[Rfam]
Background
A member of the RNA family "Small nucleolar RNA SNORA73 family" from Anolis carolinensis, 222 nucleotides long. Clan: snR30-U17 clan. NCBI's taxonomy places the organism under Eukaryota, Vertebrata, Teleostomi, Sarcopterygii, Anolis. Rfam 15.1 lists 2,326 matches to the family in 660 species. It is annotated as an H/ACA-box small nucleolar RNA. The literature on the family includes a 1996 paper in RNA by Enright et al., "5'ETS rRNA processing facilitated by four small RNAs: U14, E3, U17, and U3". U17 (SNORA73A and SNORA73B) also known as E1 belongs to the H/ACA class of small nucleolar RNAs (snoRNAs). Vertebrate U17 is intron-encoded and ranges in length from 200-230 nucleotides, longer than most snoRNAs. It is one of the most abundant snoRNAs in human cells and is essential for the cleavage of pre-rRNA within the 5' external transcribed spacer (ETS). This cleavage leads to the formation of 18S rRNA. Regions of the U17 RNA are complementary to rRNA and act as guides for RNA/RNA interactions, although these regions do not seem to be well conserved between organisms. A search with the family's covariance model found it, with a score of 158 bits. Pairs were carried over by alignment from the consensus structure, which is taken from published work.
RNA sequence: CCAACAUGGGUAUCCAGUGAGGUUGCUCUCACAUGGCUCUGCCCAAGUGGUGCAUGGGAGCUUAGCUCCAUGGGAGCAAUGAUGUAUAUUCCCAUUCCACAAUGUUGGAGAGCAAGUUUUCCCUUCCGGCUGAAAACGCUGUUGAGGGGAGGCGUCCUGUAUAUUCCUCUAACUUCUCGGUAUUUGUGGUUGCUGAGGAGACAAACCAUGCAGGACACAUCC
Numbered sequence: 001c002c003a004a005c006a007u008g009g010g011u012a013u014c015c016a017g018u019g020a021g022g023u024u025g026c027u028c029u030c031a032c033a034u035g036g037c038u039c040u041g042c043c044c045a046a047g048u049g050g051u052g053c054a055u056g057g058g059a060g061c062u063u064a065g066c067u068c069c070a071u072g073g074g075a076g077c078a079a080u081g082a083u084g085u086a087u088a089u090u091c092c093c094a095u096u097c098c099a100c101a102a103u104g105u106u107g108g109a110g111a112g113c114a115a116g117u118u119u120u121c122c123c124u125u126c127c128g129g130c131u132g133a134a135a136a137c138g139c140u141g142u143u144g145a146g147g148g149g150a151g152g153c154g155u156c157c158u159g160u161a162u163a164u165u166c167c168u169c170u171a172a173c174u175u176c177u178c179g180g181u182a183u184u185u186g187u188g189g190u191u192g193c194u195g196a197g198g199a200g201a202c203a204a205a206c207c208a209u210g211c212a213g214g215a216c217a218c219a220u221c222c
Base pairs, nucleotide, nucleotide: 001108002107003106004105005104006103007102008044009043010042011041012040014036015035016034019028020027021026047100048099049098050097056093057092058091059090060087063084064083065080156214157213158212159211160210161209162208173200174199175198176197177196178195182187